[Rfam]
RNA sequence: GUUUGGAGUAGAAGCUGUCAGUGCCGGCCGGCACGGGUCAUUGCUCCGUGA
Numbered sequence: 001g002u003u004u005g006g007a008g009u010a011g012a013a014g015c016u017g018u019c020a021g022u023g024c025c026g027g028c029c030g031g032c033a034c035g036g037g038u039c040a041u042u043g044c045u046c047c048g049u050g051a
Stems, first nucleotide, its partner, number of pairs: 005047006015036001019037001021034005
Dot-bracket structure: ....((((((....(...[.(((((....))))).)]....))))))....
About this RNA:
A member of the RNA family "Xanthine riboswitch aptamer (NMT1 RNA)" from a Rhodobacterales bacterium, 51 nucleotides long. The family's consensus secondary structure is taken from published work. Taxonomically the source falls in Rhodobacterales (Bacteria, Pseudomonadati, Pseudomonadota, Alphaproteobacteria). The literature on the family includes a 2020 paper in RNA by Yu and Breaker, "A bacterial riboswitch class senses xanthine and uric acid to regulate genes associated with purine oxidation".